[Rfam]
RNA: CyaR/Rye RNA
RNA sequence: UUGCUGAAAAAUGAAGAACUAAAAAAGUUUUAUUGUAAGACUAGGAACCACCUCCUUGGCUAGCUCAAUCUCCCUUGGGCUGGCCUUUUC
Dot-bracket structure: ..........................................((((......)))).(((((((((((......))))))))))).....